The record is a 92-nucleotide RNA sequence from Tupaia belangeri, which matches "Small nucleolar RNA SNORD116" in Rfam. The match comes from Rfam's covariance-model search (93 bits). Its family is annotated with RNA processing and nucleolus in the Gene Ontology. The family's consensus secondary structure was predicted with PFOLD. By type it is a C/D-box small nucleolar RNA.
[Rfam]
RNA sequence: GGAUCGAUGAUGACUCCCCAGAAAACAUUCCUUGGAAAAUCUGAACAAAAUGAGUGAAAACUCACAACCGUCUCUCAUUGGAACUGAGGUCU
Numbered sequence: 001g002g003a004u005c006g007a008u009g010a011u012g013a014c015u016c017c018c019c020a021g022a023a024a025a026c027a028u029u030c031c032u033u034g035g036a037a038a039a040u041c042u043g044a045a046c047a048a049a050a051u052g053a054g055u056g057a058a059a060a061c062u063c064a065c066a067a068c069c070g071u072c073u074c075u076c077a078u079u080g081g082a083a084c085u086g087a088g089g090u091c092u
Stems, first nucleotide, its partner, number of pairs: 001092005026056005032048003
Dot-bracket structure: (((((....................(((((.(((...........)))...)))))...............................)))))